[Rfam]
Nucleotides: 214
Stems, first nucleotide, its partner, number of pairs: 001138005015128004027117003031114003037053005054099007139154004
Number, partner (000 for none) and nucleotide at each position: 001138g002137g003136c004135g005134a006000u007000a008000a009000a010000u011000g012000g013000u014000g015128c016127c017126g018125u019000g020000u021000a022000a023000u024000a025000g026000g027117u028116a029115c030000a031114a032113c033112g034000g035000a036000c037053c038052c039051g040050g041049g042000g043000g044000c045000a046000g047000u048000a049041c050040c051039c052038g053037g054099c055098g056097g057096c058095u059094c060093c061000a062000c063000c064000a065000c066000a067000a068000a069000c070000c071000g072000c073000g074000c075000a076000u077000u078000g079000u080000c081000g082000c083000g084000g085000u086000u087000u088000a089000u090000g091000a092000c093060g094059g095058g096057g097056c098055c099054g100000a101000a102000c103000u104000a105000g106000g107000a108000u109000c110000g111000a112033c113032g114031u115029g116028u117027g118000c119000u120000g121000a122000a123000a124000g125018a126017c127016g128015g129000u130000a131000u132000u133000u134005u135004c136003g137002c138001c139154c140153g141152g142151g143000c144000u145000g146000a147000g148000u149000a150000a151142c152141c153140c154139g155000u156000a157000a158000a159000a160000c161000u162000g163000u164000u165000c166000g167000c168000a169000a170000c171000a172000c173000a174000c175000a176000a177000g178000u179000g180000c181000c182000a183000a184000c185000g186000a187000c188000a189000a190000c191000g192000a193000a194000g195000c196000a197000c198000u199000c200000g201000c202000u203000c204000u205000c206000g207000c208000u209000g210000c211000g212000u213000a214000a